[Rfam]
RNA sequence: CCCGGACCGGGAAGCGAUGAACCGUCGGGCGUCGACCGGUCGCCCUGGGAUGACCUUCGUGCCAUCUCACACCCGACGGGGAGCAAGAGGCGAGACCGACCCGGCUGUCG
Numbered sequence: 001c002c003c004g005g006a007c008c009g010g011g012a013a014g015c016g017a018u019g020a021a022c023c024g025u026c027g028g029g030c031g032u033c034g035a036c037c038g039g040u041c042g043c044c045c046u047g048g049g050a051u052g053a054c055c056u057u058c059g060u061g062c063c064a065u066c067u068c069a070c071a072c073c074c075g076a077c078g079g080g081g082a083g084c085a086a087g088a089g090g091c092g093a094g095a096c097c098g099a100c101c102c103g104g105c106u107g108u109c110g
Stems, first nucleotide, its partner, number of pairs: 001110001005106001007104005014084002022079008038097002040093005
This 110-nucleotide RNA belongs to the Rfam family "c-di-GMP-II-GAG riboswitch aptamer". On this family, see Weinberg et al., Proc Natl Acad Sci U S A 2017: "Bioinformatic analysis of riboswitch structures uncovers variant classes with altered ligand specificity". Pairs were carried over by alignment from the consensus structure, which is taken from published work. The family is grouped with related families in Rfam's "c-di-GMP_II riboswitch clan". Gene Ontology terms of the family: regulation of gene expression and cyclic-di-GMP binding.